RNA: Small nucleolar RNA SNORA42/SNORA80 family
RNA sequence: GCAUGGGUUUGGAUUUAUGACAGGCCCGUUCCCCUGGGCCUCUCAUAGUGUCCCAUGCUAGAGCAAUCCAUGGCCCCAAACCAUUGCCUGGCCUGUGUCUGUAGGCUGCUGACAGUGAAGUGGGCCACAAAGUU
Numbered sequence: 001g002c003a004u005g006g007g008u009u010u011g012g013a014u015u016u017a018u019g020a021c022a023g024g025c026c027c028g029u030u031c032c033c034c035u036g037g038g039c040c041u042c043u044c045a046u047a048g049u050g051u052c053c054c055a056u057g058c059u060a061g062a063g064c065a066a067u068c069c070a071u072g073g074c075c076c077c078a079a080a081c082c083a084u085u086g087c088c089u090g091g092c093c094u095g096u097g098u099c100u101g102u103a104g105g106c107u108g109c110u111g112a113c114a115g116u117g118a119a120g121u122g123g124g125c126c127a128c129a130a131a132g133u134u
Base pairs, nucleotide, nucleotide: 001058002057003056004055005053006052007051008050015048016047017046018045019044020043022041023040024039025037026036071127072126073125074124075123076122082117083116088111089108090107091106092105093104094103